This 199-nucleotide RNA from Halalkalibacter krulwichiae belongs to the Rfam family "Group II catalytic intron D1-D4-5". Rfam's curators write: Group II introns are found in rRNA, tRNA and mRNA of organelles in fungi, plants and protists, and also in mRNA in bacteria.
RNA sequence: CUGAAGGAUUAUAUCGAAGAGUCAAAUGAUAGAGUAACGUCUUGAAGGGCUCUCUCUUAGUCGAUUAGCACUGAAAUUAGUAAGAGUCGCAGUGUUAUAAGCUCGGCAAAAAGGCGUGAGAAUUUACCGUAACAGUGAUUAUGGCUGACGAAAUCCUACCCGCGGGGGUGGUGUAAAUCAUGAUGCUUGAGUUGAUUGA
Numbered sequence: 001c002u003g004a005a006g007g008a009u010u011a012u013a014u015c016g017a018a019g020a021g022u023c024a025a026a027u028g029a030u031a032g033a034g035u036a037a038c039g040u041c042u043u044g045a046a047g048g049g050c051u052c053u054c055u056c057u058u059a060g061u062c063g064a065u066u067a068g069c070a071c072u073g074a075a076a077u078u079a080g081u082a083a084g085a086g087u088c089g090c091a092g093u094g095u096u097a098u099a100a101g102c103u104c105g106g107c108a109a110a111a112a113g114g115c116g117u118g119a120g121a122a123u124u125u126a127c128c129g130u131a132a133c134a135g136u137g138a139u140u141a142u143g144g145c146u147g148a149c150g151a152a153a154u155c156c157u158a159c160c161c162g163c164g165g166g167g168g169u170g171g172u173g174u175a176a177a178u179c180a181u182g183a184u185g186c187u188u189g190a191g192u193u194g195a196u197u198g199a
Stems, first nucleotide, its partner, number of pairs: 018053006031043002034040001054191003061106004066097008076087003113187005122178006128150003134146002155171002158169004